[Rfam]
RNA sequence: UCGUUUUUCUCUUUGGUUAUCUAGCUGUAUGAGUGUAUCUGAUGUCAUAAAGCUAGAAAACCGAAUGUAAAACCGA
Numbered sequence: 001u002c003g004u005u006u007u008u009c010u011c012u013u014u015g016g017u018u019a020u021c022u023a024g025c026u027g028u029a030u031g032a033g034u035g036u037a038u039c040u041g042a043u044g045u046c047a048u049a050a051a052g053c054u055a056g057a058a059a060a061c062c063g064a065a066u067g068u069a070a071a072a073c074c075g076a
Stems, first nucleotide, its partner, number of pairs: 001076003005072001007070002010067001012065007020057007028049005
RNA: mir-9/mir-79 microRNA precursor family
Organism: Geotrypetes seraphini